[Rfam]
Nucleotides: 203
Base pairs, nucleotide, nucleotide: 003030004029005028006027008024009023010022011021012020031079032078033077034076035075036074037073041070042069043068044067045066046065047064048063049062050061051060147196148195150193151192153190154189155188156187157186165185166184167183168182169181170180171179172178
Number, partner (000 for none) and nucleotide at each position: 001000g002000u003030c004029g005028g006027c007000u008024u009023c010022g011021g012020a013000a014000g015000a016000g017000c018000g019000a020012u021011c022010c023009g024008a025000u026000a027006g028005c029004u030003g031079g032078c033077a034076g035075a036074a037073c038000c039000c040000c041070u042069g043068u044067c045066u046065c047064c048063u049062g050061c051060g052000u053000g054000a055000g056000c057000g058000a059000u060051c061050g062049c063048g064047g065046g066045a067044g068043g069042c070041a071000c072000c073037g074036u075035u076034c077033u078032g079031u080000g081000c082000a083000a084000c085000g086000g087000a088000a089000u090000u091000c092000c093000g094000a095000a096000g097000a098000a099000a100000g101000u102000u103000g104000g105000u106000g107000c108000g109000u110000u111000c112000g113000u114000g115000g116000a117000g118000a119000a120000a121000c122000a123000a124000a125000g126000u127000a128000g129000c130000g131000c132000a133000g134000c135000g136000a137000a138000c139000u140000u141000g142000u143000a144000a145000u146000c147196a148195c149000c150193g151192a152000u153190g154189c155188c156187g157186c158000a159000u160000c161000g162000c163000u164000c165185g166184g167183g168182a169181a170180g171179g172178a173000c174000a175000g176000a177000g178172u179171u180170c181169u182168u183167c184166u185165c186157g187156c188155g189154g190153c191000c192151u193150c194000a195148g196147u197000a198000g199000c200000c201000u202000c203000c
The family of this 203-nucleotide sequence from Synechococcus sp. CC9605 is "Cyano-2 RNA".